Shown here is a 57-nucleotide RNA sequence from Ranzania japonica, a member of the family "Plastid-ndhJ 3UTR RNA". The family's RNA type in Rfam is cis-regulatory element. Rfam 15.1 lists 869 matches to the family in 155 species. Pairs were carried over by alignment from the consensus structure, which was predicted with LocARNA. Rfam describes the family as follows. Plastid ndhJ is a non-coding RNA (ncRNA) present in plastids. It was identified as a short stem-loop motif in the 3 prime untranslate region (3UTR) of ndhJ gene. The sequence is in the family's curated seed alignment. For this family Rfam cites "Retrograde signaling in plants: A critical review focusing on the GUN pathway and beyond" (Richter et al., Plant Commun, 2023).
Nucleotides: 057
Stems, first nucleotide, its partner, number of pairs: 019037002022034004
Number, partner (000 for none) and nucleotide at each position: 001000c002000c003000a004000u005000g006000a007000a008000c009000u010000u011000u012000g013000u014000a015000c016000c017000g018000c019037g020036c021000a022034c023033a024032u025031c026000a027000u028000u029000u030000a031025g032024a033023u034022g035000g036020g037019u038000u039000c040000u041000a042000g043000a044000a045000c046000g047000u048000a049000g050000a051000g052000g053000g054000g055000a056000a057000u